[Rfam]
RNA sequence: UCCUUCAAUGUUGAAACAAUCUCUAUUGAACCAGGAUCCAAACCAAGUUUACUGGAGUUUGUUUCAAUGUUGCAAGAA
Numbered sequence: 001u002c003c004u005u006c007a008a009u010g011u012u013g014a015a016a017c018a019a020u021c022u023c024u025a026u027u028g029a030a031c032c033a034g035g036a037u038c039c040a041a042a043c044c045a046a047g048u049u050u051a052c053u054g055g056a057g058u059u060u061g062u063u064u065c066a067a068u069g070u071u072g073c074a075a076g077a078a
Stems, first nucleotide, its partner, number of pairs: 003076003006072014021057005027051005
RNA: mir-653 microRNA precursor family
Organism: Suricata suricatta